[Rfam]
RNA sequence: ACUGGCACUGUGAUGACUCAAAUUAUCUUUUGCCGUUUACCCAGCAGAGAGUUUCUUUGAAGAAAAUUUUAAGACUGAGAUGCCAGU
Numbered sequence: 001a002c003u004g005g006c007a008c009u010g011u012g013a014u015g016a017c018u019c020a021a022a023u024u025a026u027c028u029u030u031u032g033c034c035g036u037u038u039a040c041c042c043a044g045c046a047g048a049g050a051g052u053u054u055c056u057u058u059g060a061a062g063a064a065a066a067u068u069u070u071a072a073g074a075c076u077g078a079g080a081u082g083c084c085a086g087u
Base pairs, nucleotide, nucleotide: 001087002086003085004084005083006082007081
Dot-bracket structure: (((((((.........................................................................)))))))
Rfam assigns this 87-nucleotide sequence from Galemys pyrenaicus to the family "Small nucleolar RNA SNORD87". Its family is annotated with nucleolus and RNA processing in the Gene Ontology. A reference for the family is Huttenhofer et al. (2001), "RNomics: an experimental approach that identifies 201 candidates for novel, small, non-messenger RNAs in mouse", EMBO J. It scores 90 bits against the family's covariance model. Rfam 15.1 lists 539 matches to the family in 430 species. Rfam classes the family as a C/D-box small nucleolar RNA.